[Rfam]
RNA: Fluoride riboswitch aptamer (crcB RNA motif)
Organism: Thiobaca trueperi
RNA sequence: CGCUCCAGUGGAGAUGGCAUGCCUCCCUGAACCGCCGUUUUAUCCGGCUGAUGAUGCCUACCGACAA
Dot-bracket structure: .........[[[[..(((((..]]]].......((((.......)))).....))))).........
Numbered sequence: 001c002g003c004u005c006c007a008g009u010g011g012a013g014a015u016g017g018c019a020u021g022c023c024u025c026c027c028u029g030a031a032c033c034g035c036c037g038u039u040u041u042a043u044c045c046g047g048c049u050g051a052u053g054a055u056g057c058c059u060a061c062c063g064a065c066a067a
Stems, first nucleotide, its partner, number of pairs: 010026004016058005034048004